RNA: msiK RNA
Organism: Schaalia dentiphila
RNA sequence: CCACGGUCACCCCACUACGGAUCGUCCGGCACGUACCUGCCGGUGGGAAGGAAAACUC
Numbered sequence: 001c002c003a004c005g006g007u008c009a010c011c012c013c014a015c016u017a018c019g020g021a022u023c024g025u026c027c028g029g030c031a032c033g034u035a036c037c038u039g040c041c042g043g044u045g046g047g048a049a050g051g052a053a054a055a056c057u058c
Base pairs, nucleotide, nucleotide: 008050011047012046013045014044026043027042028041029040030039031038